[Rfam]
RNA sequence: GUGAUGAACCUAAGAGAGGUUAUUAGCAAUAAGCAAUAGCGCCGAAGGGGCAAGAAGUAAUUCGAAACUCUCAGGCAGAAGAAUUGGGUUCGGACG
Numbered sequence: 001g002u003g004a005u006g007a008a009c010c011u012a013a014g015a016g017a018g019g020u021u022a023u024u025a026g027c028a029a030u031a032a033g034c035a036a037u038a039g040c041g042c043c044g045a046a047g048g049g050g051c052a053a054g055a056a057g058u059a060a061u062u063c064g065a066a067a068c069u070c071u072c073a074g075g076c077a078g079a080a081g082a083a084u085u086g087g088g089u090u091c092g093g094a095c096g
Stems, first nucleotide, its partner, number of pairs: 006091008020039004041076003044072002048070003054063002
Glycine riboswitch aptamer: a 96-nucleotide RNA from Dorea sp. CAG:105. The base pairs follow the family's consensus structure. Taxonomically the source falls in Dorea (Bacteria, Bacillati, Bacillota, Lachnospiraceae).